[Rfam]
RNA sequence: UCCAUCGUGAGGUGGAAUCUGAAGGAAGUCAGCGGCAAAUCUCCGCCCUAAGGAACACGAACUUCAUAUAAGGCUAGGUGCAUUUGAAUAAGGUUGCUAAACAAACCAAAGUUCUUACUGCCAAAGGAUGCACAGAGUAAAUGAAGUAGGGACAUGGAGUGGAAGAGUAUGUG
Numbered sequence: 001u002c003c004a005u006c007g008u009g010a011g012g013u014g015g016a017a018u019c020u021g022a023a024g025g026a027a028g029u030c031a032g033c034g035g036c037a038a039a040u041c042u043c044c045g046c047c048c049u050a051a052g053g054a055a056c057a058c059g060a061a062c063u064u065c066a067u068a069u070a071a072g073g074c075u076a077g078g079u080g081c082a083u084u085u086g087a088a089u090a091a092g093g094u095u096g097c098u099a100a101a102c103a104a105a106c107c108a109a110a111g112u113u114c115u116u117a118c119u120g121c122c123a124a125a126g127g128a129u130g131c132a133c134a135g136a137g138u139a140a141a142u143g144a145a146g147u148a149g150g151g152a153c154a155u156g157g158a159g160u161g162g163a164a165g166a167g168u169a170u171g172u173g
Stems, first nucleotide, its partner, number of pairs: 001016006030171002036165001041159005046151005062146006073138003078133006086114004092107004